Description:
Fluoride riboswitch aptamer (crcB RNA motif): a 79-nucleotide sequence from Gluconobacter wancherniae.

RNA sequence: GAAGCUUUAGGCAAUGGACUCUGCCUGACCAUUCUGGUCGAACCGCACCCUUCGGGCUGCUGAUGACUCCUACCCAACC
Numbered sequence: 001g002a003a004g005c006u007u008u009a010g011g012c013a014a015u016g017g018a019c020u021c022u023g024c025c026u027g028a029c030c031a032u033u034c035u036g037g038u039c040g041a042a043c044c045g046c047a048c049c050c051u052u053c054g055g056g057c058u059g060c061u062g063a064u065g066a067c068u069c070c071u072a073c074c075c076a077a078c079c
Base pairs, nucleotide, nucleotide: 010025011024012023013022016070017069018068020066021065045060046059047058